A member of the RNA family "Group II catalytic intron D1-D4-2" from Darwinula stevensoni, 120 nucleotides long. Lineage of the source: Eukaryota > Bilateria > Ostracoda > Darwinuloidea > Darwinula. Rfam describes the family as follows. Group II introns are found in rRNA, tRNA and mRNA of organelles in fungi, plants and protists, and also in mRNA in bacteria. The pairing is the family consensus, mapped onto this sequence. It scores 82 bits against the family's covariance model. The family has 144 seed sequences and 1,231 matches in Rfam 15.1.

RNA sequence: GGUAGUAGGUCUAUCACAGUCGCUGUGCAAGCGGGGGCUGUAAACCGCCUCUCGGUGCUAUUGGAGUAAUCGAAUGGUAUUGAACGGAAAGAGGAAAAGGCUGUGGAAGAACAGUCAGGU
Numbered sequence: 001g002g003u004a005g006u007a008g009g010u011c012u013a014u015c016a017c018a019g020u021c022g023c024u025g026u027g028c029a030a031g032c033g034g035g036g037g038c039u040g041u042a043a044a045c046c047g048c049c050u051c052u053c054g055g056u057g058c059u060a061u062u063g064g065a066g067u068a069a070u071c072g073a074a075u076g077g078u079a080u081u082g083a084a085c086g087g088a089a090a091g092a093g094g095a096a097a098a099g100g101c102u103g104u105g106g107a108a109g110a111a112c113a114g115u116c117a118g119g120u
Base pairs, nucleotide, nucleotide: 001015002014003013004012005011016041017040018039019038020037021036023034024033025032026031046119048094049093050092051091052090053087054081055080057078058077059076061074062073063071064070099116100115101114102113103112104111